[Rfam]
RNA: Guanidine-II riboswitch aptamer (mini-ykkC)
RNA sequence: GUCUGGGGACGGCCCCACGACCUUUCGAAAAACUGCGGGACGACCCGC
Numbered sequence: 001g002u003c004u005g006g007g008g009a010c011g012g013c014c015c016c017a018c019g020a021c022c023u024u025u026c027g028a029a030a031a032a033c034u035g036c037g038g039g040a041c042g043a044c045c046c047g048c
Stems, first nucleotide, its partner, number of pairs: 002019001004017005035048005